[Rfam]
RNA: Bacterial large subunit ribosomal RNA, nucleotides 2533 to 2792
Organism: Paludisphaera borealis
RNA sequence: GGAAACUUGAGGAGAGUCUCCCCUAGUACGAGAGGAUUGGGGAGGACCGACCUCUGGUGUACCGGCUGUCCUGCUAAGGGCACCGCCGGGUAGCUAGGUCGGGACAGGAUAAGCGCUGAAGGCAUCUAAGCGCGAAGCCCCCUCCGAGAUGAGGUUUCCAGCAGGAUUUCCUGCGUAGGCUCCUGGAAGACGACCAGGUCGAUAGGCCGGACGUGCACGACGAGCGAUCGUCUCAGCCGACCGGUCCUAACAGCCAAGCG
Numbered sequence: 001g002g003a004a005a006c007u008u009g010a011g012g013a014g015a016g017u018c019u020c021c022c023c024u025a026g027u028a029c030g031a032g033a034g035g036a037u038u039g040g041g042g043a044g045g046a047c048c049g050a051c052c053u054c055u056g057g058u059g060u061a062c063c064g065g066c067u068g069u070c071c072u073g074c075u076a077a078g079g080g081c082a083c084c085g086c087c088g089g090g091u092a093g094c095u096a097g098g099u100c101g102g103g104a105c106a107g108g109a110u111a112a113g114c115g116c117u118g119a120a121g122g123c124a125u126c127u128a129a130g131c132g133c134g135a136a137g138c139c140c141c142c143u144c145c146g147a148g149a150u151g152a153g154g155u156u157u158c159c160a161g162c163a164g165g166a167u168u169u170c171c172u173g174c175g176u177a178g179g180c181u182c183c184u185g186g187a188a189g190a191c192g193a194c195c196a197g198g199u200c201g202a203u204a205g206g207c208c209g210g211a212c213g214u215g216c217a218c219g220a221c222g223a224g225c226g227a228u229c230g231u232c233u234c235a236g237c238c239g240a241c242c243g244g245u246c247c248u249a250a251c252a253g254c255c256a257a258g259c260g
Stems, first nucleotide, its partner, number of pairs: 001159008011145004017045007047102005055096003062089005067082006107139002113133005162173003178255004182198005203249003206245005213237001219232005